RNA: Bacterial RNase P class B
Organism: Lactobacillus apis
RNA sequence: AAUUUUGAGCAGUCGCGGUUUGACUUUUAGUCAGGCUGAGGAAAGUCCACGCACACACAAGCUGCGAUGCUUGUAGUGAUCGUAUUUAGCCCAAUAAGCUAAAGGAUUUUAAAUAAUUACGGCGAAAAAAGUGCUAAGUUAAUAUUAAUAUGCAUGAAUAUUCUGAAAAGUGCCACAGUGACGAAGCUUGAGUGGAAACACUCUUGGUGGAACGAGGUAAACCCUGCGAGUGUGCAACCCAAAUUUGGUGGGGGCGUCUCAACCAAAAGGAAAUGAACUAAAUGGUUGGAUUGCUUUUUAGCAAAGAUAGAUGGCUGCUGAAGGUAAUUAUGCCAAAAUUACUGGAACAGAACGUGGCUUAUAGAA
Numbered sequence: 001a002a003u004u005u006u007g008a009g010c011a012g013u014c015g016c017g018g019u020u021u022g023a024c025u026u027u028u029a030g031u032c033a034g035g036c037u038g039a040g041g042a043a044a045g046u047c048c049a050c051g052c053a054c055a056c057a058c059a060a061g062c063u064g065c066g067a068u069g070c071u072u073g074u075a076g077u078g079a080u081c082g083u084a085u086u087u088a089g090c091c092c093a094a095u096a097a098g099c100u101a102a103a104g105g106a107u108u109u110u111a112a113a114u115a116a117u118u119a120c121g122g123c124g125a126a127a128a129a130a131g132u133g134c135u136a137a138g139u140u141a142a143u144a145u146u147a148a149u150a151u152g153c154a155u156g157a158a159u160a161u162u163c164u165g166a167a168a169a170g171u172g173c174c175a176c177a178g179u180g181a182c183g184a185a186g187c188u189u190g191a192g193u194g195g196a197a198a199c200a201c202u203c204u205u206g207g208u209g210g211a212a213c214g215a216g217g218u219a220a221a222c223c224c225u226g227c228g229a230g231u232g233u234g235c236a237a238c239c240c241a242a243a244u245u246u247g248g249u250g251g252g253g254g255c256g257u258c259u260c261a262a263c264c265a266a267a268a269g270g271a272a273a274u275g276a277a278c279u280a281a282a283u284g285g286u287u288g289g290a291u292u293g294c295u296u297u298u299u300a301g302c303a304a305a306g307a308u309a310g311a312u313g314g315c316u317g318c319u320g321a322a323g324g325u326a327a328u329u330a331u332g333c334c335a336a337a338a339u340u341a342c343u344g345g346a347a348c349a350g351a352a353c354g355u356g357g358c359u360u361a362u363a364g365a366a
Stems, first nucleotide, its partner, number of pairs: 004366003007362001008319007016038006043360003047357005052234005057074006080229005085103006104120001105118004121224002124163003131155004138149003170222002172218003187206001190203005238253003257289002261287005291304005323343007